[Rfam]
RNA sequence: UUUGGAAAAAGGCAAACCCGGUGAAAGCUGGGGACGCAAAACUACAGGGGCUACGCAUCGAGAGAUGUAUGCCAGCCAGUUGCCCAU
Numbered sequence: 001u002u003u004g005g006a007a008a009a010a011g012g013c014a015a016a017c018c019c020g021g022u023g024a025a026a027g028c029u030g031g032g033g034a035c036g037c038a039a040a041a042c043u044a045c046a047g048g049g050g051c052u053a054c055g056c057a058u059c060g061a062g063a064g065a066u067g068u069a070u071g072c073c074a075g076c077c078a079g080u081u082g083c084c085c086a087u
Stems, first nucleotide, its partner, number of pairs: 012037002017032006040081004047077002049073003056067004
Rfam assigns this 87-nucleotide RNA sequence from Alicyclobacillus sp. SO9 to the family "c-di-GMP-I riboswitch aptamer". Taxonomically the source falls in Alicyclobacillus (Bacteria, Bacillati, Bacillota, Bacilli). It scores 81 bits against the family's covariance model.